[Rfam]
Nucleotides: 065
Base pairs, nucleotide, nucleotide: 007059008058009057011055013053014052017050018049019048020047021046022045023044024043027041028040029039030038031037
Number, partner (000 for none) and nucleotide at each position: 001000u002000u003000u004000c005000c006000a007059g008058u009057c010000a011055g012000c013053c014052u015000c016000u017050g018049g019048c020047c021046u022045a023044a024043a025000a026000u027041c028040c029039a030038g031037c032000a033000c034000u035000u036000a037031g038030c039029u040028g041027g042000a043024u044023u045022u046021a047020g048019g049018c050017c051000a052014a053013g054000c055011u056000u057009g058008a059007c060000u061000g062000a063000a064000a065000a
Rfam assigns this 65-nucleotide RNA from Mesocricetus auratus to the family "mir-344 microRNA precursor family". Taxonomically the source falls in Mesocricetus (Eukaryota, Metazoa, Eutheria, Rodentia). A reference for the family is Linsen et al. (2010), "Small RNA expression and strain specificity in the rat", BMC Genomics.